[Rfam]
Rfam assigns this 97-nucleotide RNA from Nyssa sinensis to the family "Plastid-rps12 3UTR RNA".
A search with the family's covariance model found it, with a score of 102 bits.
Rfam describes the family as follows. Plastid rpl20 is a non-coding RNA (ncRNA) recognised in plastids. It was found in the three prime untranslated region (3UTR) of rps12 gene, its 3UTR location sugest a role in transcript maduration.
Lineage of the source: Eukaryota > Tracheophyta > Pentapetalae > Nyssaceae > Nyssa.
RNA sequence: AACUUCUUUCCGUGCAAAUCCAAUCACCUCAAUUUAAGAUGAGAAGCAAUUCCCCAUUGGUAGCAAAUGGUUAUCCAUUAAGCGGGGGAAAUCCUAU
Dot-bracket structure: ........(..(.......)..)............................((((((.((((((.....)))))).)).....))))..........